Source information: This 146-nucleotide RNA from Drosophila rhopaloa belongs to the Rfam family "Small nucleolar RNA psi18S-1377". The family's RNA type in Rfam is H/ACA-box small nucleolar RNA. NCBI's taxonomy places the organism under Eukaryota, Allotriocarida, Panorpida, Muscomorpha, Sophophora. From the family's description: psi18S-1377 is a member of the H/ACA class of snoRNA. This family is responsible for guiding the modification of uridines 1377 and 1279 to pseudouridine in Drosophila 18S rRNA. Rfam links the family to the GO terms RNA processing and nucleolus.

RNA sequence: CCGUUUUUGUGUUAUUUGCUGGAAGUUAUAUCCAAAGCCAGUGAUUGUCAAACAGAACGUAGACUAAAAACGAGGCAGCUACUCACUCCAUAAUGUUUAUCCUAAUUUAUCCAGGGAUUCUGCAUUACUAAAUGCUUGCUACAUGC
Numbered sequence: 001c002c003g004u005u006u007u008u009g010u011g012u013u014a015u016u017u018g019c020u021g022g023a024a025g026u027u028a029u030a031u032c033c034a035a036a037g038c039c040a041g042u043g044a045u046u047g048u049c050a051a052a053c054a055g056a057a058c059g060u061a062g063a064c065u066a067a068a069a070a071c072g073a074g075g076c077a078g079c080u081a082c083u084c085a086c087u088c089c090a091u092a093a094u095g096u097u098u099a100u101c102c103u104a105a106u107u108u109a110u111c112c113a114g115g116g117a118u119u120c121u122g123c124a125u126u127a128c129u130a131a132a133u134g135c136u137u138g139c140u141a142c143a144u145g146c
Stems, first nucleotide, its partner, number of pairs: 002059006010050002016044007092126005099118004